[Rfam]
RNA sequence: AUAUUCCUUCGGGGUCGGGUGAAAGUCCCAACCGGCGGUGAUGGGCGCGAGCCUUAAGUCCGUGACCCGGGCGCACGUGUGCGAACGGUGGAUCUAGUGCGAUUCUAGAGCCGACAGUAUAGUCUGGAUGGGAGAAGGAAACA
Dot-bracket structure: ...(((((((......(((.......))).[[((((((...................[[))))...((..................))....(((((.......)))))]])).(((....]]))).......)))))))...
Background: This 143-nucleotide RNA from Exiguobacterium chiriqhucha belongs to the Rfam family "FMN riboswitch aptamer (RFN element)". The family's consensus secondary structure is taken from published work. It scores 110 bits against the family's covariance model.